[Rfam]
RNA sequence: CACGUCUGAACGCUGAACCUUCAGCAGGCGUGCGGCCCCAAGCUAUUGAGGCCGAAGGGCGGGGGACCCAAUACCGGCAUCCGCUGUCACGGAGGCCUUGGGGUGAAGUCGGCGCAGCCGGCCGGACGCCUGACAGUCCGAACCCGACAGCUCACCCCGCAAGCGUUCGUCAGGAAAGGA
Number, nucleotide and partner (000 for none) at each position: 001c000002a000003c000004g000005u000006c000007u000008g000009a000010a000011c165012g164013c163014u162015g000016a000017a000018c058019c057020u056021u055022c054023a000024g000025c000026a000027g000028g000029c000030g000031u000032g000033c000034g000035g000036c000037c000038c000039c000040a000041a000042g000043c000044u000045a000046u000047u000048g000049a000050g000051g000052c000053c000054g022055a021056a020057g019058g018059g160060c159061g158062g157063g156064g155065g000066a000067c000068c000069c100070a099071a000072u000073a000074c000075c000076g000077g000078c000079a000080u000081c000082c000083g000084c000085u000086g000087u000088c000089a000090c000091g000092g000093a000094g000095g000096c000097c000098u000099u070100g069101g145102g144103g143104u000105g000106a000107a000108g000109u121110c120111g119112g118113c000114g000115c000116a000117g000118c112119c111120g110121g109122c000123c000124g139125g138126a137127c136128g000129c000130c000131u000132g000133a000134c000135a000136g127137u126138c125139c124140g000141a000142a000143c103144c102145c101146g000147a000148c000149a000150g000151c000152u000153c000154a000155c064156c063157c062158c061159g060160c059161a000162a014163g013164c012165g011166u000167u000168c000169g000170u000171c000172a000173g000174g000175a000176a000177a000178g000179g000180a000